[Rfam]
RNA sequence: GGGGGUGUUACGGUUUCGACUAGGAAGUGAAAAAUUGAUUGCAUGCGGAGGAUAUCGGUUGGCCUCCUAAAAAAACCGGUAAAACAAUAAAUGCUAACAAUAGCAAUAAAAUUGCAAAAGUUGACUUCCAGGAAGGGACUUUUGCUAGAGCUGCGUAAGACCUAACAGUCUUGGUAGCCCGAUAGUCUGAAACUGGACCGAGGGUUUUAGAAUCUAUCGUCAUUUUCUUGGUAUGAAUUCUUUUUCUCGCCGCUUCUAGGGAAAAGUUUUCAAGAUUAAAUGAAGCAAACUAACUUCGAUUGUUGCGUUCUGCAUAGGAGUUAGGGAUUUUACAGAACGAUAAGCAUGUAGUGGUCAAUUCGUAAUUUGCCAAGGACGAGAGUUCAAUUCUCUCCACCUCCAAUU
Number, nucleotide and partner (000 for none) at each position: 001g401002g400003g399004g398005g397006u396007g395008u000009u000010a000011c000012g000013g000014u000015u000016u000017c000018g000019a000020c374021u373022a000023g371024g370025a000026a368027g000028u000029g000030a363031a000032a000033a360034a359035u358036u357037g356038a355039u354040u353041g352042c348043a347044u346045g345046c344047g067048g066049a065050g064051g063052a000053u000054a080055u079056c078057g077058g076059u075060u074061g000062g000063c051064c050065u049066c048067c047068u000069a000070a000071a000072a000073a000074a060075a059076c058077c057078g056079g055080u054081a000082a000083a000084a000085c000086a000087a000088u000089a000090a000091a000092u000093g000094c000095u000096a000097a000098c000099a000100a000101u000102a000103g000104c000105a000106a000107u000108a000109a000110a000111a000112u000113u000114g000115c000116a000117a000118a000119a000120g000121u000122u000123g000124a000125c000126u000127u000128c000129c000130a000131g000132g000133a000134a000135g000136g000137g000138a000139c000140u000141u000142u000143u000144g000145c000146u000147a000148g000149a000150g000151c000152u000153g175154c174155g000156u173157a172158a171159g170160a169161c168162c000163u000164a000165a000166c000167a000168g161169u160170c159171u158172u157173g156174g154175u153176a000177g000178c000179c000180c219181g218182a217183u216184a215185g000186u211187c210188u209189g000190a207191a206192a205193c204194u000195g000196g000197a232198c231199c230200g229201a228202g227203g000204g193205u192206u191207u190208u000209a188210g187211a186212a000213u000214c000215u184216a183217u182218c181219g180220u000221c000222a000223u000224u000225u000226u000227c202228u201229u200230g199231g198232u197233a000234u000235g270236a269237a268238u000239u266240c000241u000242u000243u000244u000245u000246c000247u000248c000249g000250c000251c000252g286253c285254u284255u283256c282257u000258a000259g000260g000261g000262a000263a000264a000265a000266g239267u000268u237269u236270u235271c000272a000273a000274g000275a000276u000277u000278a000279a000280a000281u000282g256283a255284a254285g253286c252287a000288a000289a000290c324291u323292a322293a321294c320295u000296u000297c000298g000299a000300u000301u314302g313303u000304u000305g000306c339307g338308u000309u000310c335311u334312g333313c302314a301315u000316a000317g000318g000319a000320g294321u293322u292323a291324g290325g000326g000327a000328u000329u000330u000331u000332a000333c312334a311335g310336a000337a000338c307339g306340a000341u000342a000343a000344g046345c045346a044347u043348g042349u000350a000351g000352u041353g040354g039355u038356c037357a036358a035359u034360u033361c000362g000363u030364a000365a000366u000367u000368u026369g000370c024371c023372a000373a021374g020375g000376a000377c000378g394379a393380g392381a391382g390383u000384u000385c000386a000387a000388u000389u000390c382391u381392c380393u379394c378395c007396a006397c005398c004399u003400c002401c001402a000403a000404u000405u000